[Rfam]
RNA sequence: AAAAAUGUGAUCUUGCUUGUAAAUACAAUUUUGAGAGGUUAAUAAAUUACAAGUAGUGCUAUUUUUGUAUUUAGGUUAGCUAUUUAGCUUUACGUUCCAGGAUGCCUAGUGGCAGCCCCACAAUAUCCAGGAAGCCCUCUCUGCGGUCGAAAAACCUAGGUAGGUUUUUCUAAGAAAUUUACCUAUUUUU
Numbered sequence: 001a002a003a004a005a006u007g008u009g010a011u012c013u014u015g016c017u018u019g020u021a022a023a024u025a026c027a028a029u030u031u032u033g034a035g036a037g038g039u040u041a042a043u044a045a046a047u048u049a050c051a052a053g054u055a056g057u058g059c060u061a062u063u064u065u066u067g068u069a070u071u072u073a074g075g076u077u078a079g080c081u082a083u084u085u086a087g088c089u090u091u092a093c094g095u096u097c098c099a100g101g102a103u104g105c106c107u108a109g110u111g112g113c114a115g116c117c118c119c120a121c122a123a124u125a126u127c128c129a130g131g132a133a134g135c136c137c138u139c140u141c142u143g144c145g146g147u148c149g150a151a152a153a154a155c156c157u158a159g160g161u162a163g164g165u166u167u168u169u170c171u172a173a174g175a176a177a178u179u180u181a182c183c184u185a186u187u188u189u190u
Base pairs, nucleotide, nucleotide: 001066002065003064004063005062006061007060014055015054016053017052018051019050020049021048022047024045033141034140035139036138037137038136072108073107074106075105076104078089079088080087081086095133096132097131098130100128101127102126103125109121110120111119112118145170146169151168152167153166154165155164156163157185158184159183160182161181162180
RNA: Cripavirus internal ribosome entry site (IRES)